[Rfam]
RNA sequence: UCGUCAGGUAGGAUGAUCCUUACCUGUUCCUCCUUUAGAGGGCAAAUUGAAACGUGGUGAUUGGACUUCGCAUGAUUUGUGAUUAUUGUUUCUGUGUAGUCAGGGCUCGCAACACCCUGAUUGCUCUUAUCUGAU
Numbered sequence: 001u002c003g004u005c006a007g008g009u010a011g012g013a014u015g016a017u018c019c020u021u022a023c024c025u026g027u028u029c030c031u032c033c034u035u036u037a038g039a040g041g042g043c044a045a046a047u048u049g050a051a052a053c054g055u056g057g058u059g060a061u062u063g064g065a066c067u068u069c070g071c072a073u074g075a076u077u078u079g080u081g082a083u084u085a086u087u088g089u090u091u092c093u094g095u096g097u098a099g100u101c102a103g104g105g106c107u108c109g110c111a112a113c114a115c116c117c118u119g120a121u122u123g124c125u126c127u128u129a130u131c132u133g134a135u
Base pairs, nucleotide, nucleotide: 025044026043028042029041030040031039032038074092075091078088079087080085096124097123098122099121100120101119102118103117104116
RNA: U8 small nucleolar RNA